The record is a 59-nucleotide sequence from Caproicibacter fermentans, which matches "Fluoride riboswitch aptamer (crcB RNA motif)" in Rfam.

RNA sequence: UAAUAGAUUGGUGAUGAGGCUCACCACAAUGCAUUUAUGCUGAUGGCUUCUACUUUAAG
Numbered sequence: 001u002a003a004u005a006g007a008u009u010g011g012u013g014a015u016g017a018g019g020c021u022c023a024c025c026a027c028a029a030u031g032c033a034u035u036u037a038u039g040c041u042g043a044u045g046g047c048u049u050c051u052a053c054u055u056u057a058a059g
Base pairs, nucleotide, nucleotide: 010025011024012023013022016050017049018048019047020046021045031040032039033038
Description: Taxonomically the source falls in Caproicibacter (Bacteria, Bacillati, Bacillota, Eubacteriales). Rfam links the family to the GO terms response to fluoride and positive regulation of gene expression. On this family, see Zhao et al., Nat Chem Biol 2017: "An excited state underlies gene regulation of a transcriptional riboswitch".